[Rfam]
RNA: Saccharopolyspora sRNA 350
RNA sequence: UUGACGGUGUACUCCCAGUGGUCGUCGUCCUCGAUGAUCGCCUGGUAGGUGAAGUGGUCGCCGUCGGCGAGGGUCUCCAGCACGGUCUCGUCGUCGUACUCGCCCGCGCCGAUCUUGUUCACCUUGCCGUGCGCGAUGAGCACGACCUGGUCGGCCGGGCUGCCCGCGGCCACGAGGACGUCGCCGGGCGCGUACUCCUGCUGCACGAACCGGCCCGCGAGCGCGGCCAGCACCUCUUCGUCGUCGAAGUCGUGCAGCAGCUGCAACUCGCGCAGUUCCUGCGGGAUGACCCGGAAGUCCGCGCCGGUGUGGGUGAAGGUGACCCGGCCGUCGCCGACGGUGUAGCUGAGCCUGCGGUUGACCCGGUAGGCGCCGCCGGAGACCUGGACCCACGGCAGCAGCUUGAGCAGCCAGCGGGAGGUGAUCCCCUGCAUCUGCGGGACGGACUUGGUCGUGGUCGCGAGGUUGCGCGCGGCCGCGGUGCCGAGGCUCAACUGCGGCGCGACACCAUUCGG
Dot-bracket structure: .....(((.((...(..(((((((((.((.....(...((((..(..(..((.((..(.(((((((((........(.((.(((((......))))).)).).....)))).....((((.(....(.(((.(((..(.(...(.....(...(((.((((...((......))...)....))).))).)...).).)..))).)..)).)....).))))))))).)..)).(((..((((((.....((.(.(((.((........))...)))).))...))))))..)))..))..)..)))))...).)).))))).)).))((((......))))........((.((((....((.....))..)))).)).)...)).)))((.((.(.((..((..(.......).))...)).).)).)).....((.(..((.((((.((.......)).))).).))..).))((.(((..((.(............).))..)))...)).